RNA sequence: CGGGAGUGGCGGAUGGCCGAUUCCGACGUCGCAAGACGCUCGGGAUAGGAAAGUCCGGACACCAUAAGGCAGCAUGCCCUGUGAAAACGGGGGCGCGCUGAACGAAAGUUCUUUGCGACGGAUAGUGUCACAGAAAACAAACCGCCGGAGCUUCGCAAGGAGCCUCGGUAAGGGUGAAAAGGCGGAGUAAAAGCCCACCGUCCGCGCCAGUGAUGGCCGGAGCCGAUAAACCCCACGCGGUGCAAGACAAAACAGGAGGUCGGACCGCCUGUCCGUCAUGCUGGUCCGCCAGCGUGACAGCCUCCGGGUAAUAGUCGCAGCCCUCACGGGCUGUCCGGCGCGCAAGCGCCAGACAAGAUAAAUGGCCAUCCCCGCGCCUGCUUGCAGGAGCGGGACAAAAUCCGGCUUACAGCCACCCAAGCA
Number, nucleotide and partner (000 for none) at each position: 001c421002g000003g000004g418005a000006g416007u415008g414009g413010c412011g410012g370013a369014u368015g367016g366017c365018c364019g000020a046021u045022u044023c043024c042025g041026a040027c000028g000029u000030c000031g000032c000033a000034a000035g000036a000037c000038g000039c000040u026041c025042g024043g023044g022045a021046u020047a000048g000049g000050a000051a408052a407053g406054u000055c405056c404057g403058g402059a401060c242061a241062c240063c239064a000065u000066a000067a000068g000069g000070c000071a000072g238073c237074a000075u235076g234077c092078c091079c090080u089081g088082u000083g000084a000085a000086a000087a000088c081089g080090g079091g078092g077093g119094c117095g116096c115097g114098c000099u000100g000101a000102a000103c000104g000105a000106a000107a000108g000109u000110u000111c000112u000113u000114u097115g096116c095117g094118a000119c093120g233121g232122a000123u000124a000125g231126u230127g227128u226129c225130a000131c000132a000133g000134a000135a000136a000137a000138c000139a000140a000141a000142c173143c172144g169145c168146c167147g166148g165149a000150g163151c162152u161153u160154c159155g000156c000157a000158a000159g154160g153161a152162g151163c150164c000165u148166c147167g146168g145169u144170a000171a000172g143173g142174g000175u000176g000177a000178a000179a000180a000181g199182g198183c000184g196185g195186a000187g000188u000189a000190a000191a000192a000193g000194c000195c185196c184197a000198c182199c181200g223201u221202c220203c219204g218205c000206g217207c216208c215209a214210g000211u000212g000213a000214u209215g208216g207217c206218c204219g203220g202221a201222g000223c200224c000225g129226a128227u127228a000229a000230a126231c125232c121233c120234c076235a075236c000237g073238c072239g063240g062241u061242g060243c000244a000245a000246g316247a315248c314249a000250a000251a000252a000253c000254a000255g305256g304257a303258g302259g301260u300261c000262g000263g000264a000265c000266c000267g000268c000269c000270u000271g000272u000273c000274c000275g000276u000277c000278a000279u000280g000281c000282u000283g000284g000285u000286c000287c000288g000289c000290c000291a000292g000293c000294g000295u000296g000297a000298c000299a000300g260301c259302c258303u257304c256305c255306g000307g000308g000309u000310a000311a000312u000313a000314g248315u247316c246317g000318c000319a000320g000321c000322c000323c000324u000325c000326a000327c000328g000329g000330g000331c000332u000333g000334u353335c352336c000337g350338g349339c348340g347341c346342g000343c000344a000345a000346g341347c340348g339349c338350c337351a000352g335353a334354c000355a000356a000357g000358a000359u000360a000361a000362a000363u000364g018365g017366c016367c015368a014369u013370c012371c000372c000373c000374g000375c000376g000377c000378c000379u000380g000381c000382u000383u000384g000385c000386a000387g000388g000389a000390g000391c000392g000393g000394g000395a000396c000397a000398a000399a000400a000401u059402c058403c057404g056405g055406c053407u052408u051409a000410c011411a000412g010413c009414c008415a007416c006417c000418c004419a000420a000421g001422c000423a000
The record is a 423-nucleotide sequence from Spartobacteria bacterium LR76, which matches "Bacterial RNase P class A" in Rfam. Rfam classes the family as a ribozyme. Ribonuclease P (RNase P) is a ubiquitous endoribonuclease, found in archaea, bacteria and eukarya as well as chloroplasts and mitochondria. Its best characterised activity is the generation of mature 5'-ends of tRNAs by cleaving the 5'-leader elements of precursor-tRNAs. A search with the family's covariance model found it, with a score of 178 bits.